RNA sequence: CCCAAAUAAGGGCAAACCUGCUGUGAGGCAGGGACGCAAAACUAUAGGGUCUUUGAAAAAAGAUAGCCAGAUGCUAAG
Numbered sequence: 001c002c003c004a005a006a007u008a009a010g011g012g013c014a015a016a017c018c019u020g021c022u023g024u025g026a027g028g029c030a031g032g033g034a035c036g037c038a039a040a041a042c043u044a045u046a047g048g049g050u051c052u053u054u055g056a057a058a059a060a061a062g063a064u065a066g067c068c069a070g071a072u073g074c075u076a077a078g
Stems, first nucleotide, its partner, number of pairs: 012037002017032006040072001042070002047068002049064006